RNA sequence: AAGAAAGUAACUGCCGCCCCGCACAGGGGCGUGCUAAUAGACCAAUGAGAAAACAAGUUCCACAGAAGCCGAAGCGCAUCAAACGGUUCAACAACCCCCAACCCCGAGCGCCAG
Numbered sequence: 001a002a003g004a005a006a007g008u009a010a011c012u013g014c015c016g017c018c019c020c021g022c023a024c025a026g027g028g029g030c031g032u033g034c035u036a037a038u039a040g041a042c043c044a045a046u047g048a049g050a051a052a053a054c055a056a057g058u059u060c061c062a063c064a065g066a067a068g069c070c071g072a073a074g075c076g077c078a079u080c081a082a083a084c085g086g087u088u089c090a091a092c093a094a095c096c097c098c099c100a101a102c103c104c105c106g107a108g109c110g111c112c113a114g
Base pairs, nucleotide, nucleotide: 012078013077014076015031016030017029018028019027020026057070059068099106
RNA: Burkholderia sRNA Bp1_Cand684_SIPHT